Record summary:
Bacterial large subunit ribosomal RNA: a 375-nucleotide part of an RNA from Paraglaciecola hydrolytica. Gene Ontology terms of the family: ribosome and structural constituent of ribosome.
RNA sequence: GAUAAUGGGGGUGAAAAACCCCCACGCCGGAAGACCAAGGUUUCCUGUCCCAUGCUAAUCAGGGCAGGGUAAGUCGGCCCCUAAGGCGAGGCAGAAAUGCGUAGUCGAUGGGAAACAGAUUAAUAUUUCUGUACUUAUAUAUUCAGUGAUGGGGGGACGGAGAAAGUUAUGCAAGCCUGGCGUUGGUUGUCCAGGUGAAAAUGCGUAGGCUGGCGACUUAGGUAAAUCCGGGUUGCUAAGGCCGAGACAUGAGACGAGUCACUACGGUGACGAAGUUGCAAAUACUCUGCUUCCAGGAAAAGCCUCUAAACUUAUGAAUAUAUGAACCGUACCCCAAACCGACACAGGUGGUCAGGUAGAGAAUACUAAGGCGCU
Numbered sequence: 001g002a003u004a005a006u007g008g009g010g011g012u013g014a015a016a017a018a019c020c021c022c023c024a025c026g027c028c029g030g031a032a033g034a035c036c037a038a039g040g041u042u043u044c045c046u047g048u049c050c051c052a053u054g055c056u057a058a059u060c061a062g063g064g065c066a067g068g069g070u071a072a073g074u075c076g077g078c079c080c081c082u083a084a085g086g087c088g089a090g091g092c093a094g095a096a097a098u099g100c101g102u103a104g105u106c107g108a109u110g111g112g113a114a115a116c117a118g119a120u121u122a123a124u125a126u127u128u129c130u131g132u133a134c135u136u137a138u139a140u141a142u143u144c145a146g147u148g149a150u151g152g153g154g155g156g157a158c159g160g161a162g163a164a165a166g167u168u169a170u171g172c173a174a175g176c177c178u179g180g181c182g183u184u185g186g187u188u189g190u191c192c193a194g195g196u197g198a199a200a201a202u203g204c205g206u207a208g209g210c211u212g213g214c215g216a217c218u219u220a221g222g223u224a225a226a227u228c229c230g231g232g233u234u235g236c237u238a239a240g241g242c243c244g245a246g247a248c249a250u251g252a253g254a255c256g257a258g259u260c261a262c263u264a265c266g267g268u269g270a271c272g273a274a275g276u277u278g279c280a281a282a283u284a285c286u287c288u289g290c291u292u293c294c295a296g297g298a299a300a301a302g303c304c305u306c307u308a309a310a311c312u313u314a315u316g317a318a319u320a321u322a323u324g325a326a327c328c329g330u331a332c333c334c335c336a337a338a339c340c341g342a343c344a345c346a347g348g349u350g351g352u353c354a355g356g357u358a359g360a361g362a363a364u365a366c367u368a369a370g371g372c373g374c375u
Stems, first nucleotide, its partner, number of pairs: 006024006025373004033353004039333002044068006053061002075329003080111002085106003089102001091100003115132005135325011146311002151306004159293004165286003170280005175196006197255001201250003208243003213236007221229002258271005339348002355367004